[Rfam]
Qrr RNA: a 99-nucleotide RNA from Vibrio ruber. Rfam describes the family as follows. This family represents a set of small RNAs (the Qrr RNAs) that are thought to be involved in the regulation of quorum sensing in Vibrio species. It is believed that these RNAs, guided by a protein, Hfq, can mediate the destabilisation of the quorum-sensing master regulators LuxR/HapR mRNAs. The family has 30 seed sequences and 148 matches in Rfam 15.1. NCBI's taxonomy places the organism under Bacteria, Pseudomonadota, Vibrionaceae, Vibrio, Vibrio ruber. A search with the family's covariance model found it, with a score of 85 bits.

RNA sequence: CGACCCAUCAUGGGUCACCUAGCCAACUGACGUUGUUAGUGAAUAAAGUUAUUCACAUUCUGACGGCCAAUAGAUUAUAUUUCUAUUGGCUAUUUUUUU
Dot-bracket structure: .(((((.....)))))................((((..(((((((....)))))))......))))((((((((.......))))))))..........
By type it is a small RNA. The family's consensus secondary structure is taken from published work.